[Rfam]
A member of the RNA family "DUF3800-VIII RNA" from Flavonifractor sp. An306, 64 nucleotides long.
NCBI's taxonomy places the organism under Bacteria, Bacillota, Clostridia, Oscillospiraceae, Flavonifractor.
Bacteroidetes, Cyanobacteria, Firmicutes, Planctomycetes (1 example), Proteobacteria, Tenericutes (1 example).
RNA sequence: GACGCCCUGUUGAUCUGAAGGCCUGCGUACCUACGUGGGGUAAUGGUAGGAAAUACGGGGCGCC
Numbered sequence: 001g002a003c004g005c006c007c008u009g010u011u012g013a014u015c016u017g018a019a020g021g022c023c024u025g026c027g028u029a030c031c032u033a034c035g036u037g038g039g040g041u042a043a044u045g046g047u048a049g050g051a052a053a054u055a056c057g058g059g060g061c062g063c064c
Base pairs, nucleotide, nucleotide: 001064003062004061005060006059007058008057009056010055014051015050016049020041022039023038024037025036026035027034028033